[Rfam]
RNA sequence: UCUCAUUUAAACGAUGUAUUCCCUAACCACUAAUACACCCUUGCAACCCUAUAGUUGCGCCAGUUUUGAAUAAAUUUCCUUAAAAGAUA
Number, nucleotide and partner (000 for none) at each position: 001u000002c000003u000004c000005a000006u000007u000008u000009a000010a000011a000012c000013g000014a000015u000016g000017u000018a000019u000020u000021c000022c000023c000024u000025a000026a000027c000028c000029a000030c000031u000032a000033a000034u000035a000036c068037a067038c000039c000040c063041u062042u059043g058044c057045a056046a055047c054048c000049c000050u000051a000052u000053a000054g047055u046056u045057g044058c043059g042060c000061c000062a041063g040064u000065u000066u000067u037068g036069a000070a000071u000072a000073a000074a000075u000076u000077u000078c000079c000080u000081u000082a000083a000084a000085a000086g000087a000088u000089a000
BsrC: an 89-nucleotide RNA sequence from Enterococcus alcedinis.
A reference for the family is Saito et al. (2008), "Novel small RNA-encoding genes in the intergenic regions of Bacillus subtilis", Gene.
The family has 29 seed sequences and 572 matches in Rfam 15.1.
The match comes from Rfam's covariance-model search (58 bits).
The base pairs follow the family's consensus structure, which was predicted with CMfinder.
Rfam classes the family as a small RNA.
Rfam's curators write: The 301 nucleotide sequence from Kouji Nakamura has been trimmed to a highly conserved ~85 nucleotide long core to form this family.